[Rfam]
RNA sequence: AUAACCGAGAGGGCGGAGAAAAAUCUGCCCUCCUACGCGGUCAAAGUCUUGGGAGGAUGCGAUCUAGGCGCGGUUACUCGCUGCCGCCGGAAACCGGAAACAGAUCGGACGCGUUUAAUUGCAAGGCCUCGUGCCUUGCAUUUUUUU
Numbered sequence: 001a002u003a004a005c006c007g008a009g010a011g012g013g014c015g016g017a018g019a020a021a022a023a024u025c026u027g028c029c030c031u032c033c034u035a036c037g038c039g040g041u042c043a044a045a046g047u048c049u050u051g052g053g054a055g056g057a058u059g060c061g062a063u064c065u066a067g068g069c070g071c072g073g074u075u076a077c078u079c080g081c082u083g084c085c086g087c088c089g090g091a092a093a094c095c096g097g098a099a100a101c102a103g104a105u106c107g108g109a110c111g112c113g114u115u116u117a118a119u120u121g122c123a124a125g126g127c128c129u130c131g132u133g134c135c136u137u138g139c140a141u142u143u144u145u146u147u
Base pairs, nucleotide, nucleotide: 003147004146011030012029013028014027015026016025036113037112038111039110046058047057048056049055061106062105063104064103065102067085068084069083070081071080072079087097088096089095120140121139122138123137124136125135126134127133
About this RNA: A member of the RNA family "Alphaproteobacterial sRNA ar9" from Mesorhizobium japonicum, 147 nucleotides long. NCBI's taxonomy places the organism under Bacteria, Hyphomicrobiales, Phyllobacteriaceae, Mesorhizobium, Mesorhizobium japonicum. Pairs were carried over by alignment from the consensus structure. For this family Rfam cites "A survey of sRNA families in alpha-proteobacteria" (del Val et al., RNA Biol, 2012). Rfam's curators put it in the seed alignment.